[Rfam]
RNA sequence: ACAACGGCUCUUUUAAGAGCCAACCACUUUAUCUGCGGAGCUUUA
Dot-bracket structure: .....((((((....))))))........................
Overview: Histone 3' UTR stem-loop: a 45-nucleotide RNA from Acanthochromis polyacanthus. About the family: The mRNAs of metazoan histone genes lack a poly-A tail. 3' end processing occurs at a site between a highly conserved stem-loop (modelled by this family) and a purine rich region around 20 nts downstream (the histone downstream element, or HDE). Rfam classes the family as a cis-regulatory element. Taxonomically the source falls in Acanthochromis (Eukaryota, Opisthokonta, Neopterygii, Clupeocephala).